Rfam assigns this 62-nucleotide RNA from Mus spicilegus to the family "U7 small nuclear RNA". The family has 49 seed sequences and 10,439 matches in Rfam 15.1. A reference for the family is Spycher et al. (1994), "3' end processing of mouse histone pre-mRNA: evidence for additional base-pairing between U7 snRNA and pre-mRNA", Nucleic Acids Res. Rfam describes the family as follows. Animal histone pre-mRNAs are spliced by a different mechanism than nuclear pre-mRNAs and self-splicing introns.

[Rfam]
RNA sequence: AGCUAUUUCAGCUCCUUUAGAAUUUUUCUUGCAGGUUUUCUGACUUUGUUUGGAAAAUCCAA
Numbered sequence: 001a002g003c004u005a006u007u008u009c010a011g012c013u014c015c016u017u018u019a020g021a022a023u024u025u026u027u028c029u030u031g032c033a034g035g036u037u038u039u040c041u042g043a044c045u046u047u048g049u050u051u052g053g054a055a056a057a058u059c060c061a062a
Base pairs, nucleotide, nucleotide: 034059035058036057037056038055039054040053041052042051043050